RNA: mir-2756 microRNA precursor family
RNA sequence: UCAGUUGCACACCCUGUAGCUGCCAAGGGGCGCAGCUUAAUUCCGCCCCUCGGCUGCUACAUUGUAUGCUACUGAAU
Dot-bracket structure: (((((.(((.((..((((((.(((.(((((((.((.....)).))))))).))).))))))..)).))).)))))..
Numbered sequence: 001u002c003a004g005u006u007g008c009a010c011a012c013c014c015u016g017u018a019g020c021u022g023c024c025a026a027g028g029g030g031c032g033c034a035g036c037u038u039a040a041u042u043c044c045g046c047c048c049c050u051c052g053g054c055u056g057c058u059a060c061a062u063u064g065u066a067u068g069c070u071a072c073u074g075a076a077u
Stems, first nucleotide, its partner, number of pairs: 001075005007069003011065002015061006022054003026050007034042002